[Rfam]
RNA sequence: AUAAUCCUUCGGGGUCGGGUGAAAUUCCCAAUCGACGGUGAUAAAGUAAAACUUUUAAGCCCGUGAGCCUUUUUUAGGCAGGAUAUGGUGAGAAUCCAAAGCCGACAGUAUAGUCUGGAUGGGAGAAGGAUGUA
Numbered sequence: 001a002u003a004a005u006c007c008u009u010c011g012g013g014g015u016c017g018g019g020u021g022a023a024a025u026u027c028c029c030a031a032u033c034g035a036c037g038g039u040g041a042u043a044a045a046g047u048a049a050a051a052c053u054u055u056u057a058a059g060c061c062c063g064u065g066a067g068c069c070u071u072u073u074u075u076a077g078g079c080a081g082g083a084u085a086u087g088g089u090g091a092g093a094a095u096c097c098a099a100a101g102c103c104g105a106c107a108g109u110a111u112a113g114u115c116u117g118g119a120u121g122g123g124a125g126a127a128g129g130a131u132g133u134a
Stems, first nucleotide, its partner, number of pairs: 004131007017029003031114002033104002035064004059102002069078001084100001086098003106117003

Background
This 134-nucleotide RNA from Viridibacillus arenosi belongs to the Rfam family "FMN riboswitch aptamer (RFN element)". The family has 146 seed sequences and 6,230 matches in Rfam 15.1. About the family: The RFN element is a highly conserved domain that is found frequently in the 5'-untranslated regions of prokaryotic mRNAs that encode for flavin mononucleotide (FMN) biosynthesis and transport proteins.